[Rfam]
RNA sequence: AACAACCCUCGUUAGGUGAGGCUCCUAUAUGGAGAUACGCUGCUGCCCAGAAAUGUCGAAAGACUCCAAUGGGUCAACAGAGACCAUCGGCUUAAGGUGGUUUUUAAUGUAGCUGGAUCAUACUAUCCUAUGCCAUAUAGUGCUAAAGCUCUACGAAGGAGGUUUAUU
Numbered sequence: 001a002a003c004a005a006c007c008c009u010c011g012u013u014a015g016g017u018g019a020g021g022c023u024c025c026u027a028u029a030u031g032g033a034g035a036u037a038c039g040c041u042g043c044u045g046c047c048c049a050g051a052a053a054u055g056u057c058g059a060a061a062g063a064c065u066c067c068a069a070u071g072g073g074u075c076a077a078c079a080g081a082g083a084c085c086a087u088c089g090g091c092u093u094a095a096g097g098u099g100g101u102u103u104u105u106a107a108u109g110u111a112g113c114u115g116g117a118u119c120a121u122a123c124u125a126u127c128c129u130a131u132g133c134c135a136u137a138u139a140g141u142g143c144u145a146a147a148g149c150u151c152u153a154c155g156a157a158g159g160a161g162g163u164u165u166a167u168u
Stems, first nucleotide, its partner, number of pairs: 005164001007162004011154002013095001015150003020144003025140008039113005045074005055064003080104004086098003115128003